[Rfam]
RNA sequence: GUUCGAGGACGACCUCGGUGCCGACGAGGACCCGUUCGGGGACGACCUCG
Number, nucleotide and partner (000 for none) at each position: 001g000002u000003u018004c017005g016006a015007g014008g013009a000010c000011g000012a000013c008014c007015u006016c005017g004018g003019u000020g000021c000022c000023g000024a000025c000026g000027a000028g000029g000030a000031c000032c000033c000034g000035u000036u000037c050038g049039g048040g047041g046042a000043c000044g000045a000046c041047c040048u039049c038050g037